Shown here is a 102-nucleotide RNA from Geosporobacter ferrireducens, a member of the family "Purine riboswitch aptamer". NCBI's taxonomy places the organism under Bacteria, Bacillati, Clostridia, Peptostreptococcales, Geosporobacter. Rfam links the family to the GO term purine nucleobase biosynthetic process.

RNA sequence: AUAUUAAAUGAAUACAACACUCAUAUAAUGUUGGGAAUAUGGCCCAAAAGUUUCUACCCGAUAACCGUAAAUUAUUGGACUAUGAGUGAAAAUUGUUCGGGA
Numbered sequence: 001a002u003a004u005u006a007a008a009u010g011a012a013u014a015c016a017a018c019a020c021u022c023a024u025a026u027a028a029u030g031u032u033g034g035g036a037a038u039a040u041g042g043c044c045c046a047a048a049a050g051u052u053u054c055u056a057c058c059c060g061a062u063a064a065c066c067g068u069a070a071a072u073u074a075u076u077g078g079a080c081u082a083u084g085a086g087u088g089a090a091a092a093u094u095g096u097u098c099g100g101g102a
Base pairs, nucleotide, nucleotide: 018088019087020086021085022084023083024082025081029049031047032046033045034044035043058078059077060076061075062074063073064072